[Rfam]
RNA sequence: GCAGUUACGUGUGCAUAGUUUCUAAUCUGUGUUUAGUAAUAUAGUCCAUUUGCGUUCUGCAUUUAGACUGUAUUGCUCACACUCAACCUGUGGCCAAAGAGCAGCUUGAGAUCAUAGUACUGGUUGAGUGAUGUUGAAAGACAAGCUUACCACCAACCAGCCUCCAAACUUUCAAACAUGG
Numbered sequence: 001g002c003a004g005u006u007a008c009g010u011g012u013g014c015a016u017a018g019u020u021u022c023u024a025a026u027c028u029g030u031g032u033u034u035a036g037u038a039a040u041a042u043a044g045u046c047c048a049u050u051u052g053c054g055u056u057c058u059g060c061a062u063u064u065a066g067a068c069u070g071u072a073u074u075g076c077u078c079a080c081a082c083u084c085a086a087c088c089u090g091u092g093g094c095c096a097a098a099g100a101g102c103a104g105c106u107u108g109a110g111a112u113c114a115u116a117g118u119a120c121u122g123g124u125u126g127a128g129u130g131a132u133g134u135u136g137a138a139a140g141a142c143a144a145g146c147u148u149a150c151c152a153c154c155a156a157c158c159a160g161c162c163u164c165c166a167a168a169c170u171u172u173c174a175a176a177c178a179u180g181g
Stems, first nucleotide, its partner, number of pairs: 013091003031082002034079001036077001037075006044068003048064001051061003107174005120160006128153003132145001133142003